RNA: Mu-gpT-DE RNA
RNA sequence: CCUUGACUGCAAUUUUGCAGACAAUAGCCAAGACAAGGAGAUUUACAUG
Numbered sequence: 001c002c003u004u005g006a007c008u009g010c011a012a013u014u015u016u017g018c019a020g021a022c023a024a025u026a027g028c029c030a031a032g033a034c035a036a037g038g039a040g041a042u043u044u045a046c047a048u049g
Base pairs, nucleotide, nucleotide: 002037003036004035005034007020008019009018010017011016